[Rfam]
RNA sequence: UUGUCACAACAGCCGAAGCCCAGAAAUCGGGCGCGGGGGAACCAGUUAUCCGGGGUGAAACCAAUUUUGGUCGGGUAAAUCCCUUCUAUCCGAACCCGUCAGCUAACCUCGCAGGCUUCACAAGGGAGGUAUU
Numbered sequence: 001u002u003g004u005c006a007c008a009a010c011a012g013c014c015g016a017a018g019c020c021c022a023g024a025a026a027u028c029g030g031g032c033g034c035g036g037g038g039g040a041a042c043c044a045g046u047u048a049u050c051c052g053g054g055g056u057g058a059a060a061c062c063a064a065u066u067u068u069g070g071u072c073g074g075g076u077a078a079a080u081c082c083c084u085u086c087u088a089u090c091c092g093a094a095c096c097c098g099u100c101a102g103c104u105a106a107c108c109u110c111g112c113a114g115g116c117u118u119c120a121c122a123a124g125g126g127a128g129g130u131a132u133u
Stems, first nucleotide, its partner, number of pairs: 011117004018032003033112006043052001053097003061070003073091004

Source information: The record is a 133-nucleotide RNA from Effusibacillus dendaii, which matches "c-di-AMP riboswitch aptamer (ydaO/yuaA leader)" in Rfam.